The family of this 117-nucleotide RNA from Bellilinea caldifistulae is "SAM riboswitch aptamer (S box leader)". Pairs were carried over by alignment from the consensus structure, which is taken from published work.
RNA sequence: CGCUCAUCCAGAGAGGUGGAGGGACCGGCCCGAAGAAGCCUCGGCAACCGCUGAUCCAAUCAGCAGGUGCCAACUCCGGCAGAAUCCGCAGAAUGCGAUGAUUCUGGAAGAUGAGAG
Number, nucleotide and partner (000 for none) at each position: 001c117002g000003c115004u114005c113006a112007u111008c110009c000010a000011g000012a000013g042014a041015g040016g039017u038018g000019g000020a000021g031022g030023g029024a000025c079026c078027g077028g076029c023030c022031c021032g000033a000034a000035g000036a000037a000038g017039c016040c015041u014042c013043g071044g070045c069046a068047a000048c067049c066050g064051c063052u062053g061054a000055u000056c000057c000058a000059a000060u000061c053062a052063g051064c050065a000066g049067g048068u046069g045070c044071c043072a000073a000074c000075u109076c028077c027078g026079g025080c106081a105082g104083a103084a102085u101086c000087c000088g000089c000090a000091g000092a000093a000094u000095g000096c000097g000098a000099u000100g000101a085102u084103u083104c082105u081106g080107g000108a000109a075110g008111a007112u006113g005114a004115g003116a000117g001